[Rfam]
Shown here is a 322-nucleotide RNA from Candidatus Midichloria mitochondrii, a member of the family "Alphaproteobacteria transfer-messenger RNA". Rfam links the family to the GO term RNA catabolic process. A search with the family's covariance model found it, with a score of 190 bits. The base pairs follow the family's consensus structure, which is taken from published work.
RNA sequence: UAAAUUGACUUUCUGAAAGAUUCUUGUAAAAUGAGGGGGCUCAAUAGGCUAUGGUGAUAAACGUAACUUAUAAUGGGUAUUUUGGACUCGGGGGCGGUACCCGGCACCUCCACCUGCGAAGUUUAUGGGGGGUGAGCUAGCUUCGACAGAUAUUAAAAAAAGUUACUUUUACUCGGUAAGAUACCGCCGUAAUGGAUCAAAAAAAGUAAAUGCAAACAAUAAGUUUGUACCUGCUAAUAGCGACUUUGUGCCAGCUCUUCAAGCAGCAUAACAUGAGCUAGUUAGCGCGGUUUGGGCUUGCCGGGCAACAGAAAAGCCCACA
Numbered sequence: 001u002a003a004a005u006u007g008a009c010u011u012u013c014u015g016a017a018a019g020a021u022u023c024u025u026g027u028a029a030a031a032u033g034a035g036g037g038g039g040c041u042c043a044a045u046a047g048g049c050u051a052u053g054g055u056g057a058u059a060a061a062c063g064u065a066a067c068u069u070a071u072a073a074u075g076g077g078u079a080u081u082u083u084g085g086a087c088u089c090g091g092g093g094g095c096g097g098u099a100c101c102c103g104g105c106a107c108c109u110c111c112a113c114c115u116g117c118g119a120a121g122u123u124u125a126u127g128g129g130g131g132g133u134g135a136g137c138u139a140g141c142u143u144c145g146a147c148a149g150a151u152a153u154u155a156a157a158a159a160a161a162g163u164u165a166c167u168u169u170u171a172c173u174c175g176g177u178a179a180g181a182u183a184c185c186g187c188c189g190u191a192a193u194g195g196a197u198c199a200a201a202a203a204a205a206g207u208a209a210a211u212g213c214a215a216a217c218a219a220u221a222a223g224u225u226u227g228u229a230c231c232u233g234c235u236a237a238u239a240g241c242g243a244c245u246u247u248g249u250g251c252c253a254g255c256u257c258u259u260c261a262a263g264c265a266g267c268a269u270a271a272c273a274u275g276a277g278c279u280a281g282u283u284a285g286c287g288c289g290g291u292u293u294g295g296g297c298u299u300g301c302c303g304g305g306c307a308a309c310a311g312a313a314a315a316g317c318c319c320a321c322a
Stems, first nucleotide, its partner, number of pairs: 039049003053173005063166007078152003082149003088104005105134007174189004180198002184195002288303004294319006